Rfam assigns this 91-nucleotide sequence from Edwardsiella hoshinae to the family "CopA-like RNA". It is annotated as an antisense RNA. A search with the family's covariance model found it, with a score of 67 bits. The literature on the family includes a 1986 paper in Nucleic Acids Res by Gerhart et al., "Structural analysis of an RNA molecule involved in replication control of plasmid R1". Lineage of the source: Bacteria > Pseudomonadati > Pseudomonadota > Enterobacterales > Edwardsiella. Rfam links the family to the GO term mRNA binding. Rfam describes the family as follows. In several groups of bacterial plasmids, antisense RNAs regulate copy number through inhibition of replication initiator protein synthesis. These RNAs are characterised by a long hairpin structure interrupted by several unpaired residues or bulged loops. In plasmid R1, the inhibitory complex between the antisense RNA (CopA) and its target mRNA (CopT) is characterised by a four-way junction structure and a side-by-side helical alignment.
[Rfam]
RNA sequence: AUAGAGCAACAGCUUCUAUGCAGUAUUGUUAAGUGAGCCCCGUUAAUCUACUUCGGCCGCCAAACUGAAAAGAUUAUCGGGGUUUUCGCUU
Numbered sequence: 001a002u003a004g005a006g007c008a009a010c011a012g013c014u015u016c017u018a019u020g021c022a023g024u025a026u027u028g029u030u031a032a033g034u035g036a037g038c039c040c041c042g043u044u045a046a047u048c049u050a051c052u053u054c055g056g057c058c059g060c061c062a063a064a065c066u067g068a069a070a071a072g073a074u075u076a077u078c079g080g081g082g083u084u085u086u087c088g089c090u091u
Stems, first nucleotide, its partner, number of pairs: 001019005031091004035085008044076006
Dot-bracket structure: (((((.........)))))...........((((((((((((.((((((.....................)))))).))))))))..))))